The record is a 91-nucleotide RNA sequence, which matches "ATPC RNA motif" in Rfam.
Rfam's curators put it in the seed alignment.
Rfam classes the family as a non-coding RNA gene.
For this family Rfam cites "Identification of 22 candidate structured RNAs in bacteria using the CMfinder comparative genomics pipeline" (Weinberg et al., Nucleic Acids Res, 2007).
[Rfam]
RNA sequence: UUUACAAAGUGUCUGUGAUCUGGCAAAAUAUCUAAUCGCGUAGGUCUGAAAAUAUCAGACCCAUUCUUAAAUUAAAGGAUGUCCAAGCGUG
Numbered sequence: 001u002u003u004a005c006a007a008a009g010u011g012u013c014u015g016u017g018a019u020c021u022g023g024c025a026a027a028a029u030a031u032c033u034a035a036u037c038g039c040g041u042a043g044g045u046c047u048g049a050a051a052a053u054a055u056c057a058g059a060c061c062c063a064u065u066c067u068u069a070a071a072u073u074a075a076a077g078g079a080u081g082u083c084c085a086a087g088c089g090u091g
Stems, first nucleotide, its partner, number of pairs: 002018005037091005043061007062081007